[Rfam]
RNA sequence: UAACUAAAUCGUUUAUUUGCAGAUAUAUCGCUGGAAAAUGGCCAGCAGUUUCUACCACGCCCCAAAAGUCGUGACUAUCCGCAAGUGUUAGCUCGUA
Numbered sequence: 001u002a003a004c005u006a007a008a009u010c011g012u013u014u015a016u017u018u019g020c021a022g023a024u025a026u027a028u029c030g031c032u033g034g035a036a037a038a039u040g041g042c043c044a045g046c047a048g049u050u051u052c053u054a055c056c057a058c059g060c061c062c063c064a065a066a067a068g069u070c071g072u073g074a075c076u077a078u079c080c081g082c083a084a085g086u087g088u089u090a091g092c093u094c095g096u097a
Base pairs, nucleotide, nucleotide: 018083019082020081022079023078024077025076030046031045032044033043034042056073057072058071059070061068
About this RNA:
Shown here is a 97-nucleotide RNA from Leuconostoc lactis, a member of the family "Purine riboswitch aptamer". Lineage of the source: Bacteria > Bacillati > Lactobacillales > Lactobacillaceae > Leuconostoc.